[Rfam]
RNA sequence: GUAUGCCCUCAGCUUCUUCACUGUUGCCCUGUGGCAUGUUGAUCAAGCAGCAUUGUACAGAGCUAUCAAAGAGCAC
Numbered sequence: 001g002u003a004u005g006c007c008c009u010c011a012g013c014u015u016c017u018u019c020a021c022u023g024u025u026g027c028c029c030u031g032u033g034g035c036a037u038g039u040u041g042a043u044c045a046a047g048c049a050g051c052a053u054u055g056u057a058c059a060g061a062g063c064u065a066u067c068a069a070a071g072a073g074c075a076c
Base pairs, nucleotide, nucleotide: 014062015061016060017059019055020054022052023051024050025049026048028047030045031044
mir-103/107 microRNA precursor family: a 76-nucleotide RNA sequence from Oncorhynchus tshawytscha. Rfam describes the family as follows. This family consists of the mammalian microRNA (miRNA) precursors mir-103 and mir107. Animal miRNAs are transcribed as ~70nt precursors and subsequently processed by the Dicer enzyme to give a ~22nt product. In this case the mature sequence comes from the 3' arm of the precursor. The extents of the hairpin precursors are not generally known and are estimated based on hairpin prediction. The products are thought to have regulatory roles through complementarity to mRNA. The involvement of Dicer in miRNA processing suggests a relationship with the phenomenon of RNA interference. miRNAs are numbered based on the sequence of the mature RNA. The family's consensus secondary structure was predicted with RNAalifold. A reference for the family is Mourelatos et al. (2002), "miRNPs: a novel class of ribonucleoproteins containing numerous microRNAs", Genes Dev. Its family is annotated with miRNA-mediated post-transcriptional gene silencing and RISC complex in the Gene Ontology.